Record summary
Rfam assigns this 246-nucleotide RNA sequence from Actinophytocola algeriensis to the family "Actinobacteria sRNA Ms_IGR-5". By type it is a small RNA. The source organism's lineage runs through Bacteria, Bacillati, Actinomycetes, Pseudonocardiales and Actinophytocola.
[Rfam]
RNA sequence: ACACGAGAGAGGAGGUGGUCCAACGGUGAAUUCCCAUAGGACUCGUGAGGUGGCUGUCCGCUAAGGACCACCCAAACGGACAUGGUUUGGCCGGCCGCGCUACACGGCAUGACACCGGUUCGCCGGUGCCGGAGACGCGCGGUGUGGUCGGCGAAUACCAGGCAGUCACCCAGCCCCCGGAGCUCUCAGGGACCUAGUCCGCCCCUGGGCCUGCGCAAGCAGGAGACGGCCCGGGGGCUGUUUUAU
Numbered sequence: 001a002c003a004c005g006a007g008a009g010a011g012g013a014g015g016u017g018g019u020c021c022a023a024c025g026g027u028g029a030a031u032u033c034c035c036a037u038a039g040g041a042c043u044c045g046u047g048a049g050g051u052g053g054c055u056g057u058c059c060g061c062u063a064a065g066g067a068c069c070a071c072c073c074a075a076a077c078g079g080a081c082a083u084g085g086u087u088u089g090g091c092c093g094g095c096c097g098c099g100c101u102a103c104a105c106g107g108c109a110u111g112a113c114a115c116c117g118g119u120u121c122g123c124c125g126g127u128g129c130c131g132g133a134g135a136c137g138c139g140c141g142g143u144g145u146g147g148u149c150g151g152c153g154a155a156u157a158c159c160a161g162g163c164a165g166u167c168a169c170c171c172a173g174c175c176c177c178c179g180g181a182g183c184u185c186u187c188a189g190g191g192a193c194c195u196a197g198u199c200c201g202c203c204c205c206u207g208g209g210c211c212u213g214c215g216c217a218a219g220c221a222g223g224a225g226a227c228g229g230c231c232c233g234g235g236g237g238c239u240g241u242u243u244u245a246u
Stems, first nucleotide, its partner, number of pairs: 014058006059153004067148004171240010182230003186208006